[Rfam]
RNA sequence: UCCGGCGUACACGACUGGCGCAGGUGGGCCACCACCAGGGAGUGACGAGUCGGCAUCGAUCGCCUGGGUGCCCUCA
Numbered sequence: 001u002c003c004g005g006c007g008u009a010c011a012c013g014a015c016u017g018g019c020g021c022a023g024g025u026g027g028g029c030c031a032c033c034a035c036c037a038g039g040g041a042g043u044g045a046c047g048a049g050u051c052g053g054c055a056u057c058g059a060u061c062g063c064c065u066g067g068g069u070g071c072c073c074u075c076a
Base pairs, nucleotide, nucleotide: 003047004046010044011043012042015039016038017064018063019062020061024035025034026033027032053071054070055069056068057067
RNA: ZMP/ZTP riboswitch aptamer (pfl RNA motif)
Organism: Nocardioides caeni